[Rfam]
RNA sequence: GGCGCAAGUUCAAGGCCACAGCAGAAGUGCUCAUGGUGCGGUCGUGUCCGAUUCCAGCCGAUCUGUGAAUCCUGCU
Numbered sequence: 001g002g003c004g005c006a007a008g009u010u011c012a013a014g015g016c017c018a019c020a021g022c023a024g025a026a027g028u029g030c031u032c033a034u035g036g037u038g039c040g041g042u043c044g045u046g047u048c049c050g051a052u053u054c055c056a057g058c059c060g061a062u063c064u065g066u067g068a069a070u071c072c073u074g075c076u
Base pairs, nucleotide, nucleotide: 014043015042016041017040020076021075022074023073024072026070027039028038029037048065050063051062052061053060